[Rfam]
The record is a 72-nucleotide RNA sequence from Chanos chanos, which matches "mir-153 microRNA precursor family" in Rfam. The literature on the family includes a 2005 paper in Genes Dev by Chen et al., "The developmental miRNA profiles of zebrafish as determined by small RNA cloning". The family has 63 seed sequences and 1,565 matches in Rfam 15.1. Gene Ontology terms of the family: miRNA-mediated post-transcriptional gene silencing and RISC complex.

Nucleotides: 072
Stems, first nucleotide, its partner, number of pairs: 003070005008064013023049007
Number, partner (000 for none) and nucleotide at each position: 001000g002000c003070c004069g005068g006067u007066g008064u009063c010062a011061u012060u013059u014058u015057u016056g017055u018054g019053a020052c021000g022000g023049u024048g025047c026046a027045g028044c029043u030000a031000g032000u033000g034000a035000a036000c037000u038000g039000g040000c041000c042000c043029a044028g045027u046026u047025g048024c049023a050000u051000a052020g053019u054018c055017a056016c057015a058014a059013a060012a061011g062010u063009g064008a065000u066007c067006a068005u069004u070003g071000a072000c